[Rfam]
RNA sequence: CAUCGAUGAUGACAGAUCUAAAGGCUUGUUUCUCAAAAAACAUUCGCAGUGGCCGCCUGAGGGCUUUCGCCUUGCCGGGCUUGAGAGCCUUUGCUGCUCAAAUCCUUCCUUGGAUGUCUGAGAUC
Dot-bracket structure: .(((..........................................................((((((..............)))))).................................))).
Shown here is a 125-nucleotide sequence from Elaeis guineensis, a member of the family "Small nucleolar RNA SNORD14". Gene Ontology terms of the family: RNA processing and nucleolus. Rfam's curators write: U14 small nucleolar RNA (U14 snoRNA) is required for early cleavages of eukaryotic precursor rRNAs. A reference for the family is Samarsky et al. (1996), "An essential domain in Saccharomyces cerevisiae U14 snoRNA is absent in vertebrates, but conserved in other yeasts", Nucleic Acids Res.